[Rfam]
RNA sequence: GGUCACGAGUUCCGACAUCAAGGCCCCGGCUUGUCGGACGGCAACCCUCGCGCUGCGGUGGGGUGCCCCGGGUGAAGACCAGGUUCCGACGCACACCCGUCGGAGCAAGCGCAGCGU
Numbered sequence: 001g002g003u004c005a006c007g008a009g010u011u012c013c014g015a016c017a018u019c020a021a022g023g024c025c026c027c028g029g030c031u032u033g034u035c036g037g038a039c040g041g042c043a044a045c046c047c048u049c050g051c052g053c054u055g056c057g058g059u060g061g062g063g064u065g066c067c068c069c070g071g072g073u074g075a076a077g078a079c080c081a082g083g084u085u086c087c088g089a090c091g092c093a094c095a096c097c098c099g100u101c102g103g104a105g106c107a108a109g110c111g112c113a114g115c116g117u
Stems, first nucleotide, its partner, number of pairs: 001080004009039001011038006021031002040067003045063003049058001083106009